transfer-messenger RNA: a 349-nucleotide RNA from Streptococcus equi.
Pairs were carried over by alignment from the consensus structure, which is taken from published work.
The source organism's lineage runs through Bacteria, Bacillati, Lactobacillales, Streptococcus and Streptococcus equi subsp. equi.
Rfam links the family to the GO term RNA catabolic process.
By type it is a non-coding RNA gene.
Bacterial tmRNA, also known as 10Sa RNA or SsrA, is named for its dual tRNA and mRNA-like properties. Its role is to liberate the mRNA from a stalled ribosome.

RNA sequence: GGGGUUGUUACGGAUUCGACAGGCAUUAUGAGGCCUAUUUUGCAACUCAUCGGCAGAUGUAAAAAUGCCAGUUAAAUAUAACUGCAAAAAAUAACACAACUUACGCUUUAGCUGCCUAAAAACCAGCCGGCGUGACUUCUAUAGGAUUGCUUGUGUCUUAUUAGAGGUCUCAAAACAGCAAGCUACGUUUAGGUGAUUGUCUAGUCACCUAAAAAGAGAACCCUAGACUCGCAGGCUGAUGGCUUGAGUUAUGUGUCCUUGGUCUGUUAAAGUAAGACAUAACCUAUGGUUGUAGACAAAUAGGUUAGCAGGUGUUUGGACGUGGGUUCGACUCCCACCAGCUCCAUCA
Numbered sequence: 001g002g003g004g005u006u007g008u009u010a011c012g013g014a015u016u017c018g019a020c021a022g023g024c025a026u027u028a029u030g031a032g033g034c035c036u037a038u039u040u041u042g043c044a045a046c047u048c049a050u051c052g053g054c055a056g057a058u059g060u061a062a063a064a065a066u067g068c069c070a071g072u073u074a075a076a077u078a079u080a081a082c083u084g085c086a087a088a089a090a091a092u093a094a095c096a097c098a099a100c101u102u103a104c105g106c107u108u109u110a111g112c113u114g115c116c117u118a119a120a121a122a123c124c125a126g127c128c129g130g131c132g133u134g135a136c137u138u139c140u141a142u143a144g145g146a147u148u149g150c151u152u153g154u155g156u157c158u159u160a161u162u163a164g165a166g167g168u169c170u171c172a173a174a175a176c177a178g179c180a181a182g183c184u185a186c187g188u189u190u191a192g193g194u195g196a197u198u199g200u201c202u203a204g205u206c207a208c209c210u211a212a213a214a215a216g217a218g219a220a221c222c223c224u225a226g227a228c229u230c231g232c233a234g235g236c237u238g239a240u241g242g243c244u245u246g247a248g249u250u251a252u253g254u255g256u257c258c259u260u261g262g263u264c265u266g267u268u269a270a271a272g273u274a275a276g277a278c279a280u281a282a283c284c285u286a287u288g289g290u291u292g293u294a295g296a297c298a299a300a301u302a303g304g305u306u307a308g309c310a311g312g313u314g315u316u317u318g319g320a321c322g323u324g325g326g327u328u329c330g331a332c333u334c335c336c337a338c339c340a341g342c343u344c345c346a347u348c349a
Stems, first nucleotide, its partner, number of pairs: 001345007020318008032306009043292005048059004052069004108130002111127004134169006141161007149183006188213009199228006231267008242257001244255001248283003253278002322338005